[Rfam]
RNA sequence: CUGCGCGCUGGACGGUCAGAAAUGCAACGUCGGCGGCGCGCGGCAGAUACCGGUACCGGGGGAGACGCUGAAACACCGGGAAGAGGGCGGCGAAGGCAGCACCCUCGCGUCGCAAGGCUGCCGGGU
Number, nucleotide and partner (000 for none) at each position: 001c043002u042003g041004c040005g039006c038007g037008c036009u035010g034011g000012a000013c000014g000015g000016u000017c000018a000019g000020a000021a000022a000023u000024g000025c000026a000027a000028c000029g000030u059031c058032g057033g056034c010035g009036g008037c007038g006039c005040g004041c003042g002043g001044c000045a000046g000047a000048u000049a000050c079051c078052g077053g076054u075055a000056c033057c032058g031059g030060g000061g000062g000063a000064g000065a110066c109067g108068c107069u000070g000071a000072a000073a000074c000075a054076c053077c052078g051079g050080g000081a000082a000083g106084a105085g104086g103087g102088c000089g000090g000091c000092g000093a000094a000095g122096g121097c120098a119099g118100c117101a000102c087103c086104c085105u084106c083107g068108c067109g066110u065111c000112g000113c000114a000115a000116g000117g100118c099119u098120g097121c096122c095123g000124g000125g000126u000

A member of the RNA family "Betaproteobacteria-1 RNA", 126 nucleotides long. It is one of the family's seed sequences. The base pairs follow the family's consensus structure, which is taken from published work. By type it is a small RNA.